This 94-nucleotide RNA sequence from bacterium HR36 belongs to the Rfam family "Selenocysteine transfer RNA".
[Rfam]
RNA sequence: GGGAGCGUUUGCACCUCUGGUGAGGGCCCUGGUCUUCAAAACCAGUGGGCGCAUUGAAGAAAUGCGCCAGUGGGUUCGAUUCCCAUACGCUCCC
Numbered sequence: 001g002g003g004a005g006c007g008u009u010u011g012c013a014c015c016u017c018u019g020g021u022g023a024g025g026g027c028c029c030u031g032g033u034c035u036u037c038a039a040a041a042c043c044a045g046u047g048g049g050c051g052c053a054u055u056g057a058a059g060a061a062a063u064g065c066g067c068c069a070g071u072g073g074g075u076u077c078g079a080u081u082c083c084c085a086u087a088c089g090c091u092c093c094c
Stems, first nucleotide, its partner, number of pairs: 001094008011027002014025004029045005048068005071085004
The family's consensus secondary structure is taken from published work. It scores 76 bits against the family's covariance model.